This 162-nucleotide RNA sequence from Myotis brandtii belongs to the Rfam family "U1 spliceosomal RNA".
RNA sequence: AUACUUACCUGGCAGGGGAGAUACCAUGAUCACAAAGGUGGUUUUCCCAGAGCGAGGCUUUCCCAUUGCACUCUGGAUGUACUGACCCCUGCGAUUUCCCCGAAUGUGGUAAACUCCACUGCGUAAUUUGUGGUAGUGGGGGACUGCGUUCCCACUCUCCAU
Numbered sequence: 001a002u003a004c005u006u007a008c009c010u011g012g013c014a015g016g017g018g019a020g021a022u023a024c025c026a027u028g029a030u031c032a033c034a035a036a037g038g039u040g041g042u043u044u045u046c047c048c049a050g051a052g053c054g055a056g057g058c059u060u061u062c063c064c065a066u067u068g069c070a071c072u073c074u075g076g077a078u079g080u081a082c083u084g085a086c087c088c089c090u091g092c093g094a095u096u097u098c099c100c101c102g103a104a105u106g107u108g109g110u111a112a113a114c115u116c117c118a119c120u121g122c123g124u125a126a127u128u129u130g131u132g133g134u135a136g137u138g139g140g141g142g143a144c145u146g147c148g149u150u151c152c153c154a155c156u157c158u159c160c161a162u
Stems, first nucleotide, its partner, number of pairs: 012122004016048006023042005049090002052087001054086001056083002060079001063076002093116002095113003099109002137161005143156001145154002
Rfam links the family to the GO terms U1 snRNP, mRNA 5'-splice site recognition and pre-mRNA 5'-splice site binding. Lineage of the source: Eukaryota > Bilateria > Chordata > Tetrapoda > Myotis. U1 is a small nuclear RNA (snRNA) component of the spliceosome (involved in pre-mRNA splicing). It is annotated as a spliceosomal small nuclear RNA.